[Rfam]
RNA sequence: GCAGAAUUAUUUUUGCAGUAUGUUCCUGAAUACAUAAUAUAAGCGUAUUGGGAACAUUUUGCAUAUGUAAUUUUGU
Numbered sequence: 001g002c003a004g005a006a007u008u009a010u011u012u013u014u015g016c017a018g019u020a021u022g023u024u025c026c027u028g029a030a031u032a033c034a035u036a037a038u039a040u041a042a043g044c045g046u047a048u049u050g051g052g053a054a055c056a057u058u059u060u061g062c063a064u065a066u067g068u069a070a071u072u073u074u075g076u
Stems, first nucleotide, its partner, number of pairs: 004073007014063005020057008029049005
Rfam assigns this 76-nucleotide sequence from Cricetulus griseus to the family "mir-450 microRNA precursor family". A reference for the family is Ahn et al. (2010), "MicroRNA transcriptome in the newborn mouse ovaries determined by massive parallel sequencing", Mol Hum Reprod. NCBI's taxonomy places the organism under Eukaryota, Eutheria, Boreoeutheria, Euarchontoglires, Cricetulus. Pairs were carried over by alignment from the consensus structure, which was predicted with RNAalifold.